[Rfam]
RNA sequence: CACGCAUGUGAUGAACAACCCAGAGACUUAAUACUGAAACCUGAUGUUAUAUUGCAAUGUGCUGAUGUGC
Numbered sequence: 001c002a003c004g005c006a007u008g009u010g011a012u013g014a015a016c017a018a019c020c021c022a023g024a025g026a027c028u029u030a031a032u033a034c035u036g037a038a039a040c041c042u043g044a045u046g047u048u049a050u051a052u053u054g055c056a057a058u059g060u061g062c063u064g065a066u067g068u069g070c
Stems, first nucleotide, its partner, number of pairs: 003069004
RNA: Small nucleolar RNA SNORD82
Organism: Eschrichtius robustus